[Rfam]
Source information:
The record is a 98-nucleotide sequence from Staphylococcus aureus, which matches "Glycine riboswitch aptamer" in Rfam.
RNA sequence: GUGAUCAGUAUUAGAGAGAAUAGAGCGUUAAGACUCUAUCGCCGAAGGUGCAAGUAAUUUAUUACGAAACUCUCAGGCAAAAGGAUAAUACUGUAACG
Numbered sequence: 001g002u003g004a005u006c007a008g009u010a011u012u013a014g015a016g017a018g019a020a021u022a023g024a025g026c027g028u029u030a031a032g033a034c035u036c037u038a039u040c041g042c043c044g045a046a047g048g049u050g051c052a053a054g055u056a057a058u059u060u061a062u063u064a065c066g067a068a069a070c071u072c073u074c075a076g077g078c079a080a081a082a083g084g085a086u087a088a089u090a091c092u093g094u095a096a097c098g
Base pairs, nucleotide, nucleotide: 006093007092008091009090010089011088012087013086020039021038022037023036041078042077043076044074045073048072050070054065055064

The pairing is the family consensus, mapped onto this sequence. Its family is annotated with glycine biosynthetic process in the Gene Ontology.